The family of this 263-nucleotide RNA sequence from Cisticola juncidis is "Small Cajal body specific RNA 6".
A reference for the family is Huttenhofer et al. (2001), "RNomics: an experimental approach that identifies 201 candidates for novel, small, non-messenger RNAs in mouse", EMBO J.
U88 is small Cajal body specific RNA (scaRNA). scaRNAs are a novel class of small nuclear RNAs which localise to the Cajal bodies.
Rfam classes the family as a small Cajal body RNA.
[Rfam]
RNA sequence: GGUCUGUGAUGAAUAGUAAAAGGUCUGAUUAUCCUAAGACUUGCAGUUCCAUGCCCAUUUCUCCCAGCAGCUUCUCCCCAGCCAUGACACAGCAAUGUUGUGGCUGGCAGAGUGUUUGCUGACAGUGUGAGAUGUGCUCAAGUCAUGUUCACCUGGAGCAGCGGAGACAUGACUGGGAUCAGCAUCCAACAGUCCUGCUUGAAGGAGUUUGGGGUCUUGGAUUGGUCUAACUGGACAUGUGAUCUGACUUUUCUGCUGAGACC
Numbered sequence: 001g002g003u004c005u006g007u008g009a010u011g012a013a014u015a016g017u018a019a020a021a022g023g024u025c026u027g028a029u030u031a032u033c034c035u036a037a038g039a040c041u042u043g044c045a046g047u048u049c050c051a052u053g054c055c056c057a058u059u060u061c062u063c064c065c066a067g068c069a070g071c072u073u074c075u076c077c078c079c080a081g082c083c084a085u086g087a088c089a090c091a092g093c094a095a096u097g098u099u100g101u102g103g104c105u106g107g108c109a110g111a112g113u114g115u116u117u118g119c120u121g122a123c124a125g126u127g128u129g130a131g132a133u134g135u136g137c138u139c140a141a142g143u144c145a146u147g148u149u150c151a152c153c154u155g156g157a158g159c160a161g162c163g164g165a166g167a168c169a170u171g172a173c174u175g176g177g178a179u180c181a182g183c184a185u186c187c188a189a190c191a192g193u194c195c196u197g198c199u200u201g202a203a204g205g206a207g208u209u210u211g212g213g214g215u216c217u218u219g220g221a222u223u224g225g226u227c228u229a230a231c232u233g234g235a236c237a238u239g240u241g242a243u244c245u246g247a248c249u250u251u252u253c254u255g256c257u258g259a260g261a262c263c
Base pairs, nucleotide, nucleotide: 001263002262003261004260037245038244039243041241048221049220050219061207062206063205064204065121066120067119068118069117070116078107079106080105081104082103083102084101085100086099129187131186132185133184134183135182144171145170146169147168148167149165150164153161